[Rfam]
RNA sequence: AGCCAUGUGGUGAGUACAAAGCGAACUAUUCUUUCGCCUUUUACUAAAGAAUACCGUGUGCUCUCCACGCUAAGUGGCAUACGCCUAUUUUUGGAGGUAUCUGCCUUCGGGUAG
Numbered sequence: 001a002g003c004c005a006u007g008u009g010g011u012g013a014g015u016a017c018a019a020a021g022c023g024a025a026c027u028a029u030u031c032u033u034u035c036g037c038c039u040u041u042u043a044c045u046a047a048a049g050a051a052u053a054c055c056g057u058g059u060g061c062u063c064u065c066c067a068c069g070c071u072a073a074g075u076g077g078c079a080u081a082c083g084c085c086u087a088u089u090u091u092u093g094g095a096g097g098u099a100u101c102u103g104c105c106u107u108c109g110g111g112u113a114g
Base pairs, nucleotide, nucleotide: 003077004076005075006074008067009066010065012063013062014061015060016059017058018057027053028052029051030050031049032048033047034046101114102113103112104111105110
Rfam assigns this 114-nucleotide RNA from Capsella rubella to the family "U5 spliceosomal RNA". Rfam classes the family as a spliceosomal small nuclear RNA. NCBI's taxonomy places the organism under Eukaryota, malvids, Brassicales, Brassicaceae, Capsella. U5 RNA is a component of both types of known spliceosome. The precise function of this molecule is unknown, though it is known that the 5' loop is required for splice site selection and p220 binding, and that both the 3' stem-loop and the Sm site are important for Sm protein binding and cap methylation.